The family of this 55-nucleotide RNA sequence from Candidatus Galacturonatibacter soehngenii is "S4-Clostridia ribosomal protein leader".
It scores 48 bits against the family's covariance model.
On this family, see Eckert and Weinberg, BMC Microbiol 2020: "Discovery of 20 novel ribosomal leader candidates in bacteria and archaea".
The organism belongs to Candidatus Galacturonatibacter, within Bacteria.
It is annotated as a cis-regulatory leader.
The base pairs follow the family's consensus structure, which is taken from published work.

[Rfam]
RNA sequence: GAAAGACUACGAUCCAUCUAAUCGUAGUUGGAUACUAUAUAGUAUCUCAAUUAGG
Number, nucleotide and partner (000 for none) at each position: 001g000002a000003a000004a000005g029006a028007c027008u026009a025010c024011g023012a022013u000014c000015c000016a000017u000018c000019u000020a000021a000022u012023c011024g010025u009026a008027g007028u006029u005030g047031g046032a045033u044034a043035c042036u000037a000038u000039a000040u000041a000042g035043u034044a033045u032046c031047u030048c000049a000050a000051u000052u000053a000054g000055g000